RNA sequence: CUCUAAGGAACGUAGACAAAGAAUGCCACGUCCUGUGGCAACGUCUGCAUGACCCGCAUCCUGCGGG
Numbered sequence: 001c002u003c004u005a006a007g008g009a010a011c012g013u014a015g016a017c018a019a020a021g022a023a024u025g026c027c028a029c030g031u032c033c034u035g036u037g038g039c040a041a042c043g044u045c046u047g048c049a050u051g052a053c054c055c056g057c058a059u060c061c062u063g064c065g066g067g
Base pairs, nucleotide, nucleotide: 012048013047014046015045016044017043025039026038027037028036029035053067054066055065056064057063

About this RNA
The family of this 67-nucleotide RNA from Cytobacillus dafuensis is "Bacillaceae-1 RNA". Pairs were carried over by alignment from the consensus structure, which is taken from published work. Lineage of the source: Bacteria > Bacillati > Caryophanales > Bacillaceae > Cytobacillus.